[Rfam]
RNA sequence: UCACCCGUCAUUGGGGAGUAGCCGCUCUGCACCACGCAGAGGUCCGCGUCAACACACUUGGCCCCCAUGGCCAUGGCGCCGACAGCUUCAAGCCUGGCAAGACCUUUGACCGCACAGCCGCCGGAAGGGCCGGGGCUGCUGUGCGGUCUUUUGGUUUUUCCGGCCCCUGGAGC
Numbered sequence: 001u002c003a004c005c006c007g008u009c010a011u012u013g014g015g016g017a018g019u020a021g022c023c024g025c026u027c028u029g030c031a032c033c034a035c036g037c038a039g040a041g042g043u044c045c046g047c048g049u050c051a052a053c054a055c056a057c058u059u060g061g062c063c064c065c066c067a068u069g070g071c072c073a074u075g076g077c078g079c080c081g082a083c084a085g086c087u088u089c090a091a092g093c094c095u096g097g098c099a100a101g102a103c104c105u106u107u108g109a110c111c112g113c114a115c116a117g118c119c120g121c122c123g124g125a126a127g128g129g130c131c132g133g134g135g136c137u138g139c140u141g142u143g144c145g146g147u148c149u150u151u152u153g154g155u156u157u158u159u160c161c162g163g164c165c166c167c168u169g170g171a172g173c
Stems, first nucleotide, its partner, number of pairs: 026040003042083003046079006059073005085173006
Notes:
The family of this 173-nucleotide sequence from Hydrogenophaga aromaticivorans is "Manganese Mn2+ riboswitch aptamer (yybP-ykoY)". The pairing is the family consensus, mapped onto this sequence. The organism belongs to Hydrogenophaga, within Bacteria. Rfam's curators write: This RNA was originally discovered in E. coli during a large scale screen and was named SraF. The family was later found to exist upstream of related families of protein genes in many bacteria, including the the yybP and ykoK genes in B. subtilis. The specific functions of these proteins are unknown, but this structured RNA element may be involved in their genetic regulation as a riboswitch. On this family, see Argaman et al., Curr Biol 2001: "Novel small RNA-encoding genes in the intergenic regions of Escherichia coli".